This 452-nucleotide sequence from Edaphobacter dinghuensis belongs to the Rfam family "Bacterial RNase P class A". Rfam classes the family as a ribozyme.
[Rfam]
RNA sequence: GCAGGCGGCUGGAUGAUCGCUGCCGUCCGCGCCGCAAGGUGUCGGACGGGGGAGGAAAGUCCGAACUCCGCAGGGCAGUGUGCCGGAUAACGUCCGGGACGGCCGCUUCAAGGCGGCUGGACGGCAAGUGCAACAGAGAACAUACCGCCCGCCCUGCGCAAGCGGGGAAGGUAAGGGUGAAAAGGUGCGGUAAGAGCGCACCGCGCGGCCAGUAAUGGACGCGGCAGGGUAAACCCCACACGGAGCAAGACCAAAUAGGCAGGGAUCGCACCGCUCCUCUUCAGGCGGGCGAGCGUAUCGGCCCGAUGCGCCCAGGCGAAGAGACCGGCGGCGAGCGAAAGCUCAAUGCCAGAGCCAAAACCUGCGGGUAGGUUGCUGGAGCGGCUCAGUAAUGUGCCGCCUAGAGGAAUGAUCGUCUAAAACAAAAUUCGGCUUACGGGCCGUCUGCAAAC
Numbered sequence: 001g002c003a004g005g006c007g008g009c010u011g012g013a014u015g016a017u018c019g020c021u022g023c024c025g026u027c028c029g030c031g032c033c034g035c036a037a038g039g040u041g042u043c044g045g046a047c048g049g050g051g052g053a054g055g056a057a058a059g060u061c062c063g064a065a066c067u068c069c070g071c072a073g074g075g076c077a078g079u080g081u082g083c084c085g086g087a088u089a090a091c092g093u094c095c096g097g098g099a100c101g102g103c104c105g106c107u108u109c110a111a112g113g114c115g116g117c118u119g120g121a122c123g124g125c126a127a128g129u130g131c132a133a134c135a136g137a138g139a140a141c142a143u144a145c146c147g148c149c150c151g152c153c154c155u156g157c158g159c160a161a162g163c164g165g166g167g168a169a170g171g172u173a174a175g176g177g178u179g180a181a182a183a184g185g186u187g188c189g190g191u192a193a194g195a196g197c198g199c200a201c202c203g204c205g206c207g208g209c210c211a212g213u214a215a216u217g218g219a220c221g222c223g224g225c226a227g228g229g230u231a232a233a234c235c236c237c238a239c240a241c242g243g244a245g246c247a248a249g250a251c252c253a254a255a256u257a258g259g260c261a262g263g264g265a266u267c268g269c270a271c272c273g274c275u276c277c278u279c280u281u282c283a284g285g286c287g288g289g290c291g292a293g294c295g296u297a298u299c300g301g302c303c304c305g306a307u308g309c310g311c312c313c314a315g316g317c318g319a320a321g322a323g324a325c326c327g328g329c330g331g332c333g334a335g336c337g338a339a340a341g342c343u344c345a346a347u348g349c350c351a352g353a354g355c356c357a358a359a360a361c362c363u364g365c366g367g368g369u370a371g372g373u374u375g376c377u378g379g380a381g382c383g384g385c386u387c388a389g390u391a392a393u394g395u396g397c398c399g400c401c402u403a404g405a406g407g408a409a410u411g412a413u414c415g416u417c418u419a420a421a422a423c424a425a426a427a428u429u430c431g432g433c434u435u436a437c438g439g440g441c442c443g444u445c446u447g448c449a450a451a452c
Stems, first nucleotide, its partner, number of pairs: 001448010011437001012417007020052002023049006057435003061432005066245004073350002078241005083097005098122001100119008123236002128234002130230002145176002147172003152167006184202006203225001204223004209218003249374004259365005341355004381400005387394002